[Rfam]
RNA sequence: AUGGAUGGGCACAUGUCUUUGGACUGGUGUAGUAUCUGUUCUUAUCAGUUACAUAUCUGAUACGUCCUCCACAUGAGGACCUUAUAUUAAAUGGAUAUUUAGACCAAGCAGCAGGAACAGGGGCUUGCUCCAUUCGCUCCAUGCAUCGACCUGGUAUUGCAGUAUCUCCAGGAAAUUUUUA
Numbered sequence: 001a002u003g004g005a006u007g008g009g010c011a012c013a014u015g016u017c018u019u020u021g022g023a024c025u026g027g028u029g030u031a032g033u034a035u036c037u038g039u040u041c042u043u044a045u046c047a048g049u050u051a052c053a054u055a056u057c058u059g060a061u062a063c064g065u066c067c068u069c070c071a072c073a074u075g076a077g078g079a080c081c082u083u084a085u086a087u088u089a090a091a092u093g094g095a096u097a098u099u100u101a102g103a104c105c106a107a108g109c110a111g112c113a114g115g116a117a118c119a120g121g122g123g124c125u126u127g128c129u130c131c132a133u134u135c136g137c138u139c140c141a142u143g144c145a146u147c148g149a150c151c152u153g154g155u156a157u158u159g160c161a162g163u164a165u166c167u168c169c170a171g172g173a174a175a176u177u178u179u180u181a
Stems, first nucleotide, its partner, number of pairs: 001020001003018004043062006064080006108140001110138003114134002120131004150172005
Notes: This 181-nucleotide RNA from Clarias magur belongs to the Rfam family "U2 spliceosomal RNA". Gene Ontology terms of the family: mRNA branch site recognition, U2 snRNP and pre-mRNA branch point binding. The literature on the family includes a 1997 paper in Nucleic Acids Res by Zwieb, "The uRNA database". From the family's description: U2 is a small nuclear RNA (snRNA) component of the spliceosome (involved in pre-mRNA splicing). It is annotated as a spliceosomal small nuclear RNA.